[Rfam]
The record is a 272-nucleotide sequence from Ectothiorhodospira marina, which matches "Group II catalytic intron D1-D4-6" in Rfam.
Rfam links the family to the GO term Group II intron splicing.
From the family's description: Group II introns are found in rRNA, tRNA and mRNA of organelles in fungi, plants and protists, and also in mRNA in bacteria.
Lineage of the source: Bacteria > Pseudomonadota > Chromatiales > Ectothiorhodospiraceae > Ectothiorhodospira.
A search with the family's covariance model found it, with a score of 79 bits.
RNA sequence: UAAGUCCUGGCAUGGAAAGGGUUAACCACCCACCAUUACCGAGUGUUGCGCCUCUGGCGGAGCGGUGGCCGCGGUGAGAACUGAGGCUACAGGCGAACAAGAGAGGUGAAGCGUACACAGGGUACGUCAUAGACCGGAUGGGGAUGCAGCCCCUUAGAGCUGGAAUCGCUUCGAAAAGCCGUUCCGGAUUGGCGAGCGUUGUAACGCGCGUGAAGCCUAGACGAACCGGGCGCAUUGGUGAGCCUGGAGAGAGCCGGCGGAGUUCUCAAGCU
Numbered sequence: 001u002a003a004g005u006c007c008u009g010g011c012a013u014g015g016a017a018a019g020g021g022u023u024a025a026c027c028a029c030c031c032a033c034c035a036u037u038a039c040c041g042a043g044u045g046u047u048g049c050g051c052c053u054c055u056g057g058c059g060g061a062g063c064g065g066u067g068g069c070c071g072c073g074g075u076g077a078g079a080a081c082u083g084a085g086g087c088u089a090c091a092g093g094c095g096a097a098c099a100a101g102a103g104a105g106g107u108g109a110a111g112c113g114u115a116c117a118c119a120g121g122g123u124a125c126g127u128c129a130u131a132g133a134c135c136g137g138a139u140g141g142g143g144a145u146g147c148a149g150c151c152c153c154u155u156a157g158a159g160c161u162g163g164a165a166u167c168g169c170u171u172c173g174a175a176a177a178g179c180c181g182u183u184c185c186g187g188a189u190u191g192g193c194g195a196g197c198g199u200u201g202u203a204a205c206g207c208g209c210g211u212g213a214a215g216c217c218u219a220g221a222c223g224a225a226c227c228g229g230g231c232g233c234a235u236u237g238g239u240g241a242g243c244c245u246g247g248a249g250a251g252a253g254c255c256g257g258c259g260g261a262g263u264u265c266u267c268a269a270g271c272u
Base pairs, nucleotide, nucleotide: 012036013035014034015033019031020030021029022028023241025239026238039121040120043118044117045116046115047113048112049108050107051106052105053104054103055102059098165266168263169262170261171260172259173258184257185256186255187254189253190252191217192216193215196211197210198209199208222251226247227246228245229244230243231242